[Rfam]
RNA sequence: AAAUUCCUACGGUGUACGUAGCUUAUGCAUGUCUUAAACCAAUAAGUUUAAUAUGGAAGUUCAAUAUUUAAAUGUAGCUAACAUGCCAUCUUUUUAAGAAGGAAGUUACAAACAUUUGUGAGAGCAUCCACCUGUGAGAGCAGGUUUAUGGACAUCUAGAGAGAACGGCAUAUGUGGGGCUAUA
Numbered sequence: 001a002a003a004u005u006c007c008u009a010c011g012g013u014g015u016a017c018g019u020a021g022c023u024u025a026u027g028c029a030u031g032u033c034u035u036a037a038a039c040c041a042a043u044a045a046g047u048u049u050a051a052u053a054u055g056g057a058a059g060u061u062c063a064a065u066a067u068u069u070a071a072a073u074g075u076a077g078c079u080a081a082c083a084u085g086c087c088a089u090c091u092u093u094u095u096a097a098g099a100a101g102g103a104a105g106u107u108a109c110a111a112a113c114a115u116u117u118g119u120g121a122g123a124g125c126a127u128c129c130a131c132c133u134g135u136g137a138g139a140g141c142a143g144g145u146u147u148a149u150g151g152a153c154a155u156c157u158a159g160a161g162a163g164a165a166c167g168g169c170a171u172a173u174g175u176g177g178g179g180c181u182a183u184a
Stems, first nucleotide, its partner, number of pairs: 003181001005179007012171004017167003031153004035148006055129003059125004066119001069118007081106002086102002089099002
This 184-nucleotide RNA from Bacillus thuringiensis belongs to the Rfam family "6S / SsrS RNA".
Rfam classes the family as a non-coding RNA gene.
NCBI's taxonomy places the organism under Bacteria, Bacillota, Bacillaceae, Bacillus, [Bacillus thuringiensis] serovar konkukian.